Rfam assigns this 107-nucleotide sequence from Octodon degus to the family "Small nucleolar RNA SNORD23".
NCBI's taxonomy places the organism under Eukaryota, Chordata, Mammalia, Euarchontoglires, Octodon.
The base pairs follow the family's consensus structure.
[Rfam]
RNA sequence: UGCCCAGUGAUGACACCAUCCUUGCUCCCCGUGCCCUCAGGGGCUGUGGGUGACACCUUGCCACCCCGGGCUGGCCCAGUGAGGCCGAUACCCAGGGGCUGAGGGCA
Numbered sequence: 001u002g003c004c005c006a007g008u009g010a011u012g013a014c015a016c017c018a019u020c021c022u023u024g025c026u027c028c029c030c031g032u033g034c035c036c037u038c039a040g041g042g043g044c045u046g047u048g049g050g051u052g053a054c055a056c057c058u059u060g061c062c063a064c065c066c067c068g069g070g071c072u073g074g075c076c077c078a079g080u081g082a083g084g085c086c087g088a089u090a091c092c093c094a095g096g097g098g099c100u101g102a103g104g105g106c107a
Base pairs, nucleotide, nucleotide: 001107002106003105004104005103